[Rfam]
Small nucleolar RNA R44/J54/Z268 family: a 91-nucleotide sequence from Cephalotus follicularis. The match comes from Rfam's covariance-model search (88 bits). Its family is annotated with nucleolus and RNA processing in the Gene Ontology.
RNA sequence: AAUGCAAGUGAUGAUUAAAUAGACAGGGACAUCAGCACUCCUUUAUCGGAGAAUGUUGACUUGGUCUUGAUGGGAAUCUCUCUGAUGCAUU
Number, nucleotide and partner (000 for none) at each position: 001a000002a090003u089004g088005c087006a086007a000008g000009u000010g000011a000012u000013g000014a000015u000016u000017a000018a000019a000020u000021a000022g000023a000024c000025a000026g000027g000028g000029a000030c000031a000032u000033c000034a000035g000036c000037a000038c000039u000040c000041c000042u000043u000044u000045a000046u000047c000048g000049g000050a000051g000052a000053a000054u000055g000056u000057u000058g000059a000060c000061u000062u000063g000064g000065u000066c000067u000068u000069g000070a000071u000072g000073g000074g000075a000076a000077u000078c000079u000080c000081u000082c000083u000084g000085a000086u006087g005088c004089a003090u002091u000